[Rfam]
RNA sequence: UCAGGAGGAUUUAUUCUCUGUAACAUCGUGGGUUCGGUUCUGCGUGUGCUUGUAGGACUAAGAGUGAACCUGUUAUGACGCUGUGCUUUGGCUUGUCCAUUUCAAAUUAGGUGUCAACAAUGUGGGCUUAGAGUAGUCUUCGCUUUCAUGGUUGUCAAAGAAGUCGGGAAUGCCUCAGGCUGGCAACAGAGCAGGGAAAACGACUCGCACUUAAUAGUGAAAGGAUAGCAAGCCUUUAUAGCGUCGAAGGUUAUCGCUUGGCUCCUAACUGGUAUUCGCAUGGCUGUG
Numbered sequence: 001u002c003a004g005g006a007g008g009a010u011u012u013a014u015u016c017u018c019u020g021u022a023a024c025a026u027c028g029u030g031g032g033u034u035c036g037g038u039u040c041u042g043c044g045u046g047u048g049c050u051u052g053u054a055g056g057a058c059u060a061a062g063a064g065u066g067a068a069c070c071u072g073u074u075a076u077g078a079c080g081c082u083g084u085g086c087u088u089u090g091g092c093u094u095g096u097c098c099a100u101u102u103c104a105a106a107u108u109a110g111g112u113g114u115c116a117a118c119a120a121u122g123u124g125g126g127c128u129u130a131g132a133g134u135a136g137u138c139u140u141c142g143c144u145u146u147c148a149u150g151g152u153u154g155u156c157a158a159a160g161a162a163g164u165c166g167g168g169a170a171u172g173c174c175u176c177a178g179g180c181u182g183g184c185a186a187c188a189g190a191g192c193a194g195g196g197a198a199a200a201c202g203a204c205u206c207g208c209a210c211u212u213a214a215u216a217g218u219g220a221a222a223g224g225a226u227a228g229c230a231a232g233c234c235u236u237u238a239u240a241g242c243g244u245c246g247a248a249g250g251u252u253a254u255c256g257c258u259u260g261g262c263u264c265c266u267a268a269c270u271g272g273u274a275u276u277c278g279c280a281u282g283g284c285u286g287u288g
Stems, first nucleotide, its partner, number of pairs: 002032001004019006024030002035286005041280004047274004052269002055264002058261005067252004076247001080242006090234007097224002100222005106215009115154004120149003124145004130139003156160001162205005171198001173196003180189003
Dot-bracket structure: .(.((((((....))))))....((...)).)..(((((.((((..((((.((.((.(((((....((((.....(...((((((....(((((((((.(((((.(((((((((((((.(((.((((..(((....)))..)))).))).)))).(...).(((((....(.(((....(((....)))....))).)..))))).)))))))))..)))))))...)))))))..))))))....).))))....))))).))...)).))))..)))).)))))..
Metazoan signal recognition particle RNA: a 288-nucleotide sequence from Oxytricha trifallax.
Gene Ontology terms of the family: SRP-dependent cotranslational protein targeting to membrane, signal sequence recognition and signal recognition particle, endoplasmic reticulum targeting.
For this family Rfam cites "Prediction of signal recognition particle RNA genes" (Regalia et al., Nucleic Acids Res, 2002).
The family is grouped with related families in Rfam's "SRP clan".